[Rfam]
Nucleotides: 071
Base pairs, nucleotide, nucleotide: 004066006064007063009061010060011059012058013057014056015055016054017053018052020050021049022048024047025046026045027044028043029042030041031040
Number, partner (000 for none) and nucleotide at each position: 001000a002000u003000u004066c005000g006064u007063u008000g009061g010060a011059u012058g013057a014056a015055u016054g017053u018052g019000a020050g021049g022048c023000a024047u025046u026045g027044g028043a029042u030041u031040g032000a033000u034000u035000u036000c037000g038000u039000a040031c041030a042029a043028u044027c045026c046025g047024a048022g049021c050020c051000c052018u053017a054016c055015a056014u057013u058012c059011a060010u061009c062000c063007a064006g065000g066004g067000u068000u069000c070000g071000u
Rfam assigns this 71-nucleotide RNA from Nicotiana tabacum to the family "MIR6151 microRNA precursor family". Rfam 15.1 lists 930 matches to the family in 3 species. The sequence is in the family's curated seed alignment. Rfam links the family to the GO terms RISC complex and miRNA-mediated post-transcriptional gene silencing. The source organism's lineage runs through Eukaryota, Euphyllophyta, Magnoliopsida, Solanaceae and Nicotiana.